Record summary
M-box riboswitch aptamer (ykoK leader): a 171-nucleotide RNA from Mycolicibacterium llatzerense. M-box riboswitch, also know as ykoK leader is described as a metaloregulatory RNA that sense divalent metals and function as a genetic control element of genes related to divalent metal transport in bacteria. It was first reported upstream of the B.subtilis ykoK gene and genes with related functions in other bacteria. Rfam 15.1 lists 1,095 matches to the family in 932 species.

[Rfam]
RNA sequence: UCAGCACCUCGCUAGGCGAGGCUCCUGAACGAACAGAAGCCACUGAUCCGACGACGUCGAGAGACGCCCAGGGUCAGGACAGGUCUCCCCGGAUUAAGGGGUUACCCAAAGUGGCUAUCCGCUCGCGGAUUACGUCGUUCAGUGCCGAAGCUCUGACGAGAGGGGUGUAAG
Numbered sequence: 001u002c003a004g005c006a007c008c009u010c011g012c013u014a015g016g017c018g019a020g021g022c023u024c025c026u027g028a029a030c031g032a033a034c035a036g037a038a039g040c041c042a043c044u045g046a047u048c049c050g051a052c053g054a055c056g057u058c059g060a061g062a063g064a065c066g067c068c069c070a071g072g073g074u075c076a077g078g079a080c081a082g083g084u085c086u087c088c089c090c091g092g093a094u095u096a097a098g099g100g101g102u103u104a105c106c107c108a109a110a111g112u113g114g115c116u117a118u119c120c121g122c123u124c125g126c127g128g129a130u131u132a133c134g135u136c137g138u139u140c141a142g143u144g145c146c147g148a149a150g151c152u153c154u155g156a157c158g159a160g161a162g163g164g165g166u167g168u169a170a171g
Base pairs, nucleotide, nucleotide: 005167006166007165008164009163010162011157013097015152016151017150020146021145022144025142026141027140028139029138030137031136032135039115040114041113042112043111045075046074047073048072049071055066056065057064058063082106083105084104088100089099090098117130118129119128

Overview: The pairing is the family consensus, mapped onto this sequence. Lineage of the source: Bacteria > Actinomycetes > Mycobacteriales > Mycobacterium > Mycobacterium (subgen. Mycolicibacterium). It scores 144 bits against the family's covariance model.